[Rfam]
RNA sequence: CUAAAAACAGUGAUAGGGAUAAGUAAACAAAUACAGAUGUCUUAAAGAGAGUGGGGAAAGGUGAAAACCCAUAGACUAUGGUUGUUGAAUACACCCUGGAGUUGCAGGCUGAAAUCUAAGGAGACUAAGCCCAGCCGGUUAAAUGCCGUUAUAUAAAUGAGAUAUAAAUUUGGAUGGUACCGCGAACAGAUUAUUCGCUCCAGUG
Numbered sequence: 001c002u003a004a005a006a007a008c009a010g011u012g013a014u015a016g017g018g019a020u021a022a023g024u025a026a027a028c029a030a031a032u033a034c035a036g037a038u039g040u041c042u043u044a045a046a047g048a049g050a051g052u053g054g055g056g057a058a059a060g061g062u063g064a065a066a067a068c069c070c071a072u073a074g075a076c077u078a079u080g081g082u083u084g085u086u087g088a089a090u091a092c093a094c095c096c097u098g099g100a101g102u103u104g105c106a107g108g109c110u111g112a113a114a115u116c117u118a119a120g121g122a123g124a125c126u127a128a129g130c131c132c133a134g135c136c137g138g139u140u141a142a143a144u145g146c147c148g149u150u151a152u153a154u155a156a157a158u159g160a161g162a163u164a165u166a167a168a169u170u171u172g173g174a175u176g177g178u179a180c181c182g183c184g185a186a187c188a189g190a191u192u193a194u195u196c197g198c199u200c201c202a203g204u205g
Stems, first nucleotide, its partner, number of pairs: 007102002015097004026086005040075003051072005105134001107131004136148003171202004182198005
The family of this 205-nucleotide RNA from Andreesenella acetica is "T-box leader".
The match comes from Rfam's covariance-model search (110 bits).
Lineage of the source: Bacteria > Bacillota > Clostridia > Natronincolaceae > Andreesenella.